[Rfam]
RNA: mir-395 microRNA precursor family
RNA sequence: GUAUUAUCGCGGGUUCCCUUCAAUCACUUCACAUGGUACUAUUUCAAGGCCUACUAUGUGAAGUAUUUGGGGGAACUCUCGAUGUCAC
Number, nucleotide and partner (000 for none) at each position: 001g000002u000003a000004u000005u084006a083007u082008c081009g080010c000011g078012g077013g076014u075015u074016c073017c072018c071019u070020u069021c000022a068023a067024u000025c000026a064027c063028u062029u061030c060031a059032c058033a057034u056035g055036g054037u000038a000039c000040u000041a000042u000043u000044u000045c000046a000047a000048g000049g000050c000051c000052u000053a000054c036055u035056a034057u033058g032059u031060g030061a029062a028063g027064u026065a000066u000067u023068u022069g020070g019071g018072g017073g016074a015075a014076c013077u012078c011079u000080c009081g008082a007083u006084g005085u000086c000087a000088c000